The record is a 71-nucleotide RNA from Pan troglodytes, which matches "mir-3689 microRNA precursor family" in Rfam.
The family's consensus secondary structure was predicted with RNAalifold.
RNA sequence: GGGAGGUGUGAUAUUGUGGUUCCUGGGCGGUAGAUAUCGUGGUUCCUGGGAGGUGUGAUCCCCUGCUCCCU
Numbered sequence: 001g002g003g004a005g006g007u008g009u010g011a012u013a014u015u016g017u018g019g020u021u022c023c024u025g026g027g028c029g030g031u032a033g034a035u036a037u038c039g040u041g042g043u044u045c046c047u048g049g050g051a052g053g054u055g056u057g058a059u060c061c062c063c064u065g066c067u068c069c070c071u
Stems, first nucleotide, its partner, number of pairs: 001070005014058005020052008029043001031041002033038001